[Rfam]
The record is a 108-nucleotide RNA from Rhododendron williamsianum, which matches "Small nucleolar RNA snoR100" in Rfam. Gene Ontology terms of the family: RNA processing and nucleolus. A reference for the family is Marker et al. (2002), "Experimental RNomics: identification of 140 candidates for small non-messenger RNAs in the plant Arabidopsis thaliana", Curr Biol. By type it is an H/ACA-box small nucleolar RNA.
RNA sequence: CAAUGAAGGAAGCAUAGUAAUGUGAACAUAAAUUAAAUUGGGUUUCUAGGCCUACCCUCUCUGAUGUCAAUUGGCUUUGAUUUAGGGGCAUGGUUCCACAACAAAAUA
Numbered sequence: 001c002a003a004u005g006a007a008g009g010a011a012g013c014a015u016a017g018u019a020a021u022g023u024g025a026a027c028a029u030a031a032a033u034u035a036a037a038u039u040g041g042g043u044u045u046c047u048a049g050g051c052c053u054a055c056c057c058u059c060u061c062u063g064a065u066g067u068c069a070a071u072u073g074g075c076u077u078u079g080a081u082u083u084a085g086g087g088g089c090a091u092g093g094u095u096c097c098a099c100a101a102c103a104a105a106a107u108a
Base pairs, nucleotide, nucleotide: 013024014023015022040091042089043088044087050081052079055074056073